The record is a 25-nucleotide sequence, which matches "L19-Flavobacteria ribosomal protein leader" in Rfam. The literature on the family includes a 2020 paper in BMC Microbiol by Eckert and Weinberg, "Discovery of 20 novel ribosomal leader candidates in bacteria and archaea". The family's consensus secondary structure is taken from published work.
RNA sequence: UAACCUCUGAUGUAUAUGUAUGUUA
Numbered sequence: 001u002a003a004c005c006u007c008u009g010a011u012g013u014a015u016a017u018g019u020a021u022g023u024u025a
Stems, first nucleotide, its partner, number of pairs: 001025004008020001010017002